Record summary
A member of the RNA family "Plastid-psbA-1 3UTR RNA", 144 nucleotides long. A reference for the family is Richter et al. (2023), "Retrograde signaling in plants: A critical review focusing on the GUN pathway and beyond", Plant Commun. Pairs were carried over by alignment from the consensus structure, which was predicted with LocARNA. Plastid psbA-1 is a non-coding RNA (ncRNA) present in plastids. It was identified in inverted repeat sequences in the 3 prime untranslate region (3UTR) of photosystem II quinone-binding protein (psbA). Rfam's curators put it in the seed alignment. Clan: Plastid-psbA 3UTR RNA clan.

RNA sequence: UAGAAAUUCCAUCUAUAAAUGGAUAAGACCUUGGUCUUAAUCCUAUAAUCUUAAUCCUAUAAUUAGAAUAUAGGAUUAAGAAUUAAAAAAAGGAGCAAUAACGCCCCCUUGAUAAAACAAGAAGUGGGUUAUUGCUCCUUUUUU
Number, nucleotide and partner (000 for none) at each position: 001u000002a000003g000004a000005a000006a000007u000008u023009c022010c021011a020012u019013c000014u000015a000016u000017a000018a000019a012020u011021g010022g009023a008024u000025a000026a000027g000028a000029c000030c000031u000032u000033g000034g000035u000036c000037u000038u000039a000040a000041u000042c000043c000044u000045a000046u000047a000048a000049u000050c000051u000052u000053a000054a000055u000056c000057c000058u000059a000060u000061a000062a000063u000064u000065a000066g000067a000068a000069u000070a000071u000072a000073g000074g000075a000076u000077u000078a000079a000080g000081a000082a000083u000084u000085a000086a000087a000088a000089a141090a140091a139092g138093g137094a136095g135096c134097a133098a132099u131100a130101a129102c000103g000104c126105c000106c000107c000108c121109u120110u119111g000112a000113u000114a000115a000116a000117a000118c000119a110120a109121g108122a000123a000124g000125u000126g104127g000128g000129u101130u100131a099132u098133u097134g096135c095136u094137c093138c092139u091140u090141u089142u000143u000144u000